[Rfam]
RNA: Small nucleolar RNA SNORA84
Organism: Acanthisitta chloris
RNA sequence: GCCCUGUGGUUGCUGGACACUGGUUUGUCCCUGCAGUGCUCCAGUUGGUAGCAGUGGGCCGACAGUGAUCCUGUGACUUACGCGUGGAGCCUGUGACAUGUGAGCAGCUUCCACAGCCCUGUCACAGGAACAUUU
Numbered sequence: 001g002c003c004c005u006g007u008g009g010u011u012g013c014u015g016g017a018c019a020c021u022g023g024u025u026u027g028u029c030c031c032u033g034c035a036g037u038g039c040u041c042c043a044g045u046u047g048g049u050a051g052c053a054g055u056g057g058g059c060c061g062a063c064a065g066u067g068a069u070c071c072u073g074u075g076a077c078u079u080a081c082g083c084g085u086g087g088a089g090c091c092u093g094u095g096a097c098a099u100g101u102g103a104g105c106a107g108c109u110u111c112c113a114c115a116g117c118c119c120u121g122u123c124a125c126a127g128g129a130a131c132a133u134u135u
Stems, first nucleotide, its partner, number of pairs: 001059004007050002010047001012045006019037004071127001073125005082117002084114004089109001091107004